A member of the RNA family "sRNA-Xcc1" from Marinobacterium iners, 86 nucleotides long. The family's RNA type in Rfam is small RNA. The source organism's lineage runs through Bacteria, Pseudomonadati, Oceanospirillales, Oceanospirillaceae and Marinobacterium iners. The base pairs follow the family's consensus structure, which was predicted with RNAalifold.
RNA sequence: GUCGGGAGGGCGAGGAAUACAAUACCCUUCGGGGAAAUAACUCCGCGGUUUCUUUGUAGCCGUUCUGAACCUCCCGGCACCCCUAC
Numbered sequence: 001g002u003c004g005g006g007a008g009g010g011c012g013a014g015g016a017a018u019a020c021a022a023u024a025c026c027c028u029u030c031g032g033g034g035a036a037a038u039a040a041c042u043c044c045g046c047g048g049u050u051u052c053u054u055u056g057u058a059g060c061c062g063u064u065c066u067g068a069a070c071c072u073c074c075c076g077g078c079a080c081c082c083c084u085a086c
Stems, first nucleotide, its partner, number of pairs: 001078009012043003016038001025034003045063005